[Rfam]
RNA: ffh sRNA
RNA sequence: AGUUCGCAGGGUCAACGUCCGCCAGCGCGUCGCGCCCGCGGGCGCGUUUUGC
Numbered sequence: 001a002g003u004u005c006g007c008a009g010g011g012u013c014a015a016c017g018u019c020c021g022c023c024a025g026c027g028c029g030u031c032g033c034g035c036c037c038g039c040g041g042g043c044g045c046g047u048u049u050u051g052c
Base pairs, nucleotide, nucleotide: 016044017043018042019041020040021039022038025035026034027033028032